The record is a 256-nucleotide RNA sequence, which matches "ARRPOF RNA" in Rfam.
The sequence is in the family's curated seed alignment.
It is annotated as a small RNA.

RNA sequence: AAAAAUCUUACUAUUAUAUUUGUAACAAAUUUUAUACAUAAGAUAAAUUCGUAUGUAUAGCCGUUCUGCUCGAAACGGUAUAGCACUCUAGUAGUGGUAUUAUGAAUUGUAGCAAGGUGUGUGGCGACCUUUUUAACAGUCAUGGCGGUGUCCUGAGUGGGUACUUUGUAAAUGGUAGAAAUAGAAAGUAAGCUAUGCCAUUAGUUGCUGGGCAGGACUAGCAACAACAAGCGAAUUAGCUUGUUACAAAGUAAGU
Numbered sequence: 001a002a003a004a005a006u007c008u009u010a011c012u013a014u015u016a017u018a019u020u021u022g023u024a025a026c027a028a029a030u031u032u033u034a035u036a037c038a039u040a041a042g043a044u045a046a047a048u049u050c051g052u053a054u055g056u057a058u059a060g061c062c063g064u065u066c067u068g069c070u071c072g073a074a075a076c077g078g079u080a081u082a083g084c085a086c087u088c089u090a091g092u093a094g095u096g097g098u099a100u101u102a103u104g105a106a107u108u109g110u111a112g113c114a115a116g117g118u119g120u121g122u123g124g125c126g127a128c129c130u131u132u133u134u135a136a137c138a139g140u141c142a143u144g145g146c147g148g149u150g151u152c153c154u155g156a157g158u159g160g161g162u163a164c165u166u167u168g169u170a171a172a173u174g175g176u177a178g179a180a181a182u183a184g185a186a187a188g189u190a191a192g193c194u195a196u197g198c199c200a201u202u203a204g205u206u207g208c209u210g211g212g213c214a215g216g217a218c219u220a221g222c223a224a225c226a227a228c229a230a231g232c233g234a235a236u237u238a239g240c241u242u243g244u245u246a247c248a249a250a251g252u253a254a255g256u
Base pairs, nucleotide, nucleotide: 007192008191009190010189011188012187033059034058035057036056037055038054039053040052061078062077063076064075065074080100081099082098084096085095086094087093115130116129117128118127121143122142123141124140125139150218151217152216153215154214155213162253163252164251165250166249167248168247169246170245171202172201173200174199175198181196182195183194184193204225205224206223207222208221209220227244228243229242230241231240232239